[Rfam]
RNA: Leucine operon leader
RNA sequence: GAGAAGUUGAACCCCAUGAUCCGUACUACCCGUCUACUAGGCCUACUACUAAACGCAUCUCCUUUGCGCGGUAUGCCGGUGGGCAAAACCUGGAUCUGAUUCAGCACCUCACCUCAUAAUAAACCCGCGCUACUGCGCGGGUUUUUUU
Numbered sequence: 001g002a003g004a005a006g007u008u009g010a011a012c013c014c015c016a017u018g019a020u021c022c023g024u025a026c027u028a029c030c031c032g033u034c035u036a037c038u039a040g041g042c043c044u045a046c047u048a049c050u051a052a053a054c055g056c057a058u059c060u061c062c063u064u065u066g067c068g069c070g071g072u073a074u075g076c077c078g079g080u081g082g083g084c085a086a087a088a089c090c091u092g093g094a095u096c097u098g099a100u101u102c103a104g105c106a107c108c109u110c111a112c113c114u115c116a117u118a119a120u121a122a123a124c125c126c127g128c129g130c131u132a133c134u135g136c137g138c139g140g141g142u143u144u145u146u147u148u
Stems, first nucleotide, its partner, number of pairs: 004109001006105005015098002018096004032084007047073004054068004121144010